Annotation:
Rfam assigns this 68-nucleotide RNA to the family "DUF3800-IX RNA". The family's consensus secondary structure is taken from published work.

[Rfam]
RNA sequence: CCGCCCCCGACGACAAGGUAGCCAAGUGAGGCUGUCUUUCUCGCAAGAGAAUAGUCGGGGGUGUUUUA
Numbered sequence: 001c002c003g004c005c006c007c008c009g010a011c012g013a014c015a016a017g018g019u020a021g022c023c024a025a026g027u028g029a030g031g032c033u034g035u036c037u038u039u040c041u042c043g044c045a046a047g048a049g050a051a052u053a054g055u056c057g058g059g060g061g062u063g064u065u066u067u068a
Stems, first nucleotide, its partner, number of pairs: 002063010017036007038051005